Background
Acido-Lenti-1 RNA: a 46-nucleotide RNA sequence from Lacipirellula limnantheis. A search with the family's covariance model found it, with a score of 38 bits. The family's consensus secondary structure is taken from published work.
RNA sequence: CCCAGCUUUGAAGCGCUGGGCUAUUUCCGGUCGUCCCUUUGGGACG
Number, nucleotide and partner (000 for none) at each position: 001c020002c019003c018004a017005g016006c015007u000008u013009u000010g000011a000012a000013g008014c000015g006016c005017u004018g003019g002020g001021c000022u000023a000024u000025u000026u000027c000028c000029g000030g000031u000032c000033g045034u044035c043036c042037c041038u000039u000040u000041g037042g036043g035044a034045c033046g000